The family of this 57-nucleotide RNA from Duffyella gerundensis is "ClpQY promoter". Gene Ontology term of the family: mRNA stabilization.

RNA sequence: CUUCGCGCCCUGCUGGCGCGAAGCGCUUUUCCCACUGUAACAAGGGGUCUGCCCGUG
Numbered sequence: 001c002u003u004c005g006c007g008c009c010c011u012g013c014u015g016g017c018g019c020g021a022a023g024c025g026c027u028u029u030u031c032c033c034a035c036u037g038u039a040a041c042a043a044g045g046g047g048u049c050u051g052c053c054c055g056u057g
Stems, first nucleotide, its partner, number of pairs: 001023008
The family's RNA type in Rfam is cis-regulatory element. On this family, see Lien et al., Open Microbiol J 2009: "Regulation of clpQ(+)Y(+) (hslV(+)U(+)) gene expression in Escherichia coli". Taxonomically the source falls in Duffyella (Bacteria, Pseudomonadati, Pseudomonadota, Enterobacterales).